[Rfam]
RNA: Bacteroidete tryptophan peptide leader RNA
Organism: Bacteroides sp. CAG:714
RNA sequence: AAGAAAAAUAUAGAACAACAAUGAAACAAUCUAUGGCAUAUACAUUCUUCUGGUGGCGCCUCUUACAACUCCAAAAGUCGUAAGGGAACUCAGUCGUGUGUAUAUACCUGCAUAGAAAAGAUAUAACCGUGAAAGGCUGUC
Numbered sequence: 001a002a003g004a005a006a007a008a009u010a011u012a013g014a015a016c017a018a019c020a021a022u023g024a025a026a027c028a029a030u031c032u033a034u035g036g037c038a039u040a041u042a043c044a045u046u047c048u049u050c051u052g053g054u055g056g057c058g059c060c061u062c063u064u065a066c067a068a069c070u071c072c073a074a075a076a077g078u079c080g081u082a083a084g085g086g087a088a089c090u091c092a093g094u095c096g097u098g099u100g101u102a103u104a105u106a107c108c109u110g111c112a113u114a115g116a117a118a119a120g121a122u123a124u125a126a127c128c129g130u131g132a133a134a135g136g137c138u139g140u141c
Stems, first nucleotide, its partner, number of pairs: 036107001038105001040103006047096001050093003056089001059086003066080001068078003